[Rfam]
Rfam assigns this 75-nucleotide RNA from Niabella drilacis to the family "Fluoride riboswitch aptamer (crcB RNA motif)". The organism belongs to Niabella, within Bacteria. Gene Ontology terms of the family: response to fluoride and positive regulation of gene expression.

RNA sequence: UACAAAACAGGAAAUGGUGUCUUCCUGACCCAACCGUUCACGUCUUUGGCGGGAUCUGAUGGCGCCUACAAAUAG
Number, nucleotide and partner (000 for none) at each position: 001u000002a000003c000004a000005a000006a000007a000008c000009a000010g025011g024012a023013a022014a000015u000016g066017g065018u064019g063020u062021c061022u013023u012024c011025c010026u000027g000028a000029c000030c000031c000032a000033a000034c000035c000036g056037u000038u054039c053040a000041c000042g000043u000044c000045u000046u000047u000048g000049g000050c000051g000052g000053g039054a038055u000056c036057u000058g000059a000060u000061g021062g020063c019064g018065c017066c016067u000068a000069c000070a000071a000072a000073u000074a000075g000